[Rfam]
RNA sequence: UGAGAAAAGCAGAAGUGAGAACUUCUCGCCUUGCGACUUCGGUUGUCUGGCCCUACAUGUUAAAUUUCCUUUGGGGAGAUUAUGUGUGCGGGCCUGAAUUAUCAGGUUCGCAUUUGUUUUUCUCG
Number, nucleotide and partner (000 for none) at each position: 001u000002g000003a000004g000005a000006a000007a000008a000009g000010c000011a026012g025013a024014a023015g022016u021017g000018a000019g000020a000021a016022c015023u014024u013025c012026u011027c000028g051029c050030c049031u000032u000033g046034c045035g044036a043037c042038u000039u000040c000041g000042g037043u036044u035045g034046u033047c000048u000049g030050g029051c028052c000053c000054u000055a000056c000057a000058u000059g000060u000061u000062a000063a000064a000065u000066u000067u000068c000069c000070u000071u000072u000073g000074g000075g000076g000077a000078g000079a000080u000081u000082a000083u000084g000085u000086g000087u112088g111089c110090g109091g108092g107093c106094c105095u104096g103097a000098a000099u000100u000101a000102u000103c096104a095105g094106g093107u092108u091109c090110g089111c088112a087113u000114u000115u000116g000117u000118u000119u000120u000121u000122c000123u000124c000125g000